[Rfam]
RNA sequence: CACUCAUCCAGAGAGGUGGAGGGAAAGGGCCCGAUGAAACCCGGCAACCCGUCGCAGAUAGUGGGAAUCGAUGCGACAUGGUGCCAAUUCCUUCAGGACGCAGUUCGUCCUGGCAGAUGAGGC
Numbered sequence: 001c002a003c004u005c006a007u008c009c010a011g012a013g014a015g016g017u018g019g020a021g022g023g024a025a026a027g028g029g030c031c032c033g034a035u036g037a038a039a040c041c042c043g044g045c046a047a048c049c050c051g052u053c054g055c056a057g058a059u060a061g062u063g064g065g066a067a068u069c070g071a072u073g074c075g076a077c078a079u080g081g082u083g084c085c086a087a088u089u090c091c092u093u094c095a096g097g098a099c100g101c102a103g104u105u106c107g108u109c110c111u112g113g114c115a116g117a118u119g120a121g122g123c
Stems, first nucleotide, its partner, number of pairs: 003121006013042001015041003021032003026093004043085004048081002051077006089115001094112006
The record is a 123-nucleotide RNA sequence from Heliomicrobium modesticaldum, which matches "SAM riboswitch aptamer (S box leader)" in Rfam. NCBI's taxonomy places the organism under Bacteria, Bacillati, Bacillota, Heliomicrobium, Heliomicrobium modesticaldum. Rfam's curators write: The SAM riboswitch is found upstream of a number of genes which code for proteins involved in methionine or cysteine biosynthesis in Gram-positive bacteria. The match comes from Rfam's covariance-model search (81 bits). Rfam links the family to the GO term regulation of gene expression.